[Rfam]
RNA: Proteobacterial sRNA psRNA2
RNA sequence: GGAUUACUCCUUUACGCUUUCGCGUUUGGUUGAUAAAGAUUCGCACCUCUAUCAAACCGGGUAAUCCCACCUCUUGGCAAGACCUGCUGUCAGAUCAAAUCUGAACUACUACAAUUGAUGGCACUGGACCAUAUUCGCGAUUAUUGGACACCCAUGGGGUUUUCACCGCUAGAUCUUUCGCAUACCUCACCCGCCUGGUUU
Dot-bracket structure: (((((((.((...((((....))))..((((((((.((........)).)))).))))))))))))).......(((...((......(((((((...))))).)).(((..(.........................................)..)))..))....)))..............................
Numbered sequence: 001g002g003a004u005u006a007c008u009c010c011u012u013u014a015c016g017c018u019u020u021c022g023c024g025u026u027u028g029g030u031u032g033a034u035a036a037a038g039a040u041u042c043g044c045a046c047c048u049c050u051a052u053c054a055a056a057c058c059g060g061g062u063a064a065u066c067c068c069a070c071c072u073c074u075u076g077g078c079a080a081g082a083c084c085u086g087c088u089g090u091c092a093g094a095u096c097a098a099a100u101c102u103g104a105a106c107u108a109c110u111a112c113a114a115u116u117g118a119u120g121g122c123a124c125u126g127g128a129c130c131a132u133a134u135u136c137g138c139g140a141u142u143a144u145u146g147g148a149c150a151c152c153c154a155u156g157g158g159g160u161u162u163u164c165a166c167c168g169c170u171a172g173a174u175c176u177u178u179c180g181c182a183u184a185c186c187u188c189a190c191c192c193g194c195c196u197g198g199u200u201u
Stems, first nucleotide, its partner, number of pairs: 001067007009060002014025004028058004032053004037048002075171003081164002089106002091103005108160003113155001